[Rfam]
Purine riboswitch aptamer: a 102-nucleotide sequence from Halobacillus andaensis. Lineage of the source: Bacteria > Bacillati > Bacillota > Bacillaceae > Halobacillus. It scores 86 bits against the family's covariance model. Rfam describes the family as follows. Riboswitches are metabolite binding domains within certain messenger RNAs that serve as precision sensors for their corresponding targets. Allosteric rearrangement of mRNA structure is mediated by ligand binding, and this results in modulation of gene expression. A class of riboswitches that selectively recognises guanine and becomes saturated at concentrations as low as 5 nM. In Bacillus subtilis, this mRNA motif is located on at least five separate transcriptional units that together encode 17 genes that are mostly involved in purine transport and purine nucleotide biosynthesis. It has also been shown that some members of this family are specific for adenine instead. Hence this family are termed purine riboswitches. The literature on the family includes a 2004 paper in Nat Struct Mol Biol by Mandal and Breaker, "Adenine riboswitches and gene activation by disruption of a transcription terminator".
RNA sequence: AUGAAAUUAAUCAUCAACCUUCAUAUAUCCUCGGUAAUAUGGACCGAAAGUCUCUACCGGAGCACCGUAAAUGCUCUGACUAUGAAGGCAGGAAUCGUGUAG
Numbered sequence: 001a002u003g004a005a006a007u008u009a010a011u012c013a014u015c016a017a018c019c020u021u022c023a024u025a026u027a028u029c030c031u032c033g034g035u036a037a038u039a040u041g042g043a044c045c046g047a048a049a050g051u052c053u054c055u056a057c058c059g060g061a062g063c064a065c066c067g068u069a070a071a072u073g074c075u076c077u078g079a080c081u082a083u084g085a086a087g088g089c090a091g092g093a094a095u096c097g098u099g100u101a102g
Stems, first nucleotide, its partner, number of pairs: 018088008031047005058078007